[Rfam]
RNA: Ribosomal S15 leader
Nucleotides: 103
Stems, first nucleotide, its partner, number of pairs: 007021006031057005037051001
Number, partner (000 for none) and nucleotide at each position: 001000u002000g003000g004000a005000a006000c007021u008020g009019c010018u011017g012016g013000u014000u015000u016012u017011c018010g019009g020008c021007a022000g023000u024000u025000u026000c027000c028000u029000a030000a031057c032056u033055g034054a035053g036000a037051g038000g039000a040000a041000g042000c043000c044000c045000a046000c047000a048000u049000g050000g051037c052000a053035c054034u055033c056032a057031g058000c059000g060000u061000u062000g063000a064000a065000g066000a067000a068000a069000a070000a071000g072000c073000u074000c075000a076000g077000a078000u079000c080000g081000u082000u083000a084000a085000c086000g087000a088000c089000u090000a091000u092000a093000a094000g095000c096000a097000a098000g099000c100000u101000g102000a103000a